[Rfam]
mir-96 microRNA precursor family: a 73-nucleotide sequence from Nothobranchius furzeri. Gene Ontology terms of the family: miRNA-mediated post-transcriptional gene silencing and RISC complex. NCBI's taxonomy places the organism under Eukaryota, Neopterygii, Ovalentaria, Cyprinodontiformes, Nothobranchius.
RNA sequence: UUGCUUAUUUUGGCACUAGCACAUUUUUGCUGUUUCCUCUUUGAGCAAUCAUGUGUAGUGCCAACAUGAGAUA
Numbered sequence: 001u002u003g004c005u006u007a008u009u010u011u012g013g014c015a016c017u018a019g020c021a022c023a024u025u026u027u028u029g030c031u032g033u034u035u036c037c038u039c040u041u042u043g044a045g046c047a048a049u050c051a052u053g054u055g056u057a058g059u060g061c062c063a064a065c066a067u068g069a070g071a072u073a
Base pairs, nucleotide, nucleotide: 004070005069006068007067008066010064011063012062013061014060015059016058017057019056020055021054022053023052024051027048028047029046030045031044
Dot-bracket structure: ...(((((.((((((((.((((((..(((((............)))))..)))))))))))))).)))))...